This 63-nucleotide sequence from Vanessa tameamea belongs to the Rfam family "mir-2 microRNA precursor family". The base pairs follow the family's consensus structure, which was predicted with PFOLD. For this family Rfam cites "microRNAs: tiny regulators with great potential" (Ambros, Cell, 2001). A search with the family's covariance model found it, with a score of 64 bits.
Nucleotides: 063
Base pairs, nucleotide, nucleotide: 005057006056007054008053009052010051011050012049013047014046015045016044017043018042019041020040021039024038025037026036
Number, partner (000 for none) and nucleotide at each position: 001000u002000c003000g004000c005057u006056c007054u008053c009052a010051a011050a012049g013047u014046g015045g016044u017043u018042g019041u020040g021039a022000u023000g024038u025037g026036u027000u028000u029000u030000c031000u032000a033000u034000u035000c036026a037025u038024a039021u040020c041019a042018c043017a044016g045015c046014c047013a048000g049012c050011u051010u052009u053008g054007a055000u056006g057005a058000g059000c060000g061000a062000c063000a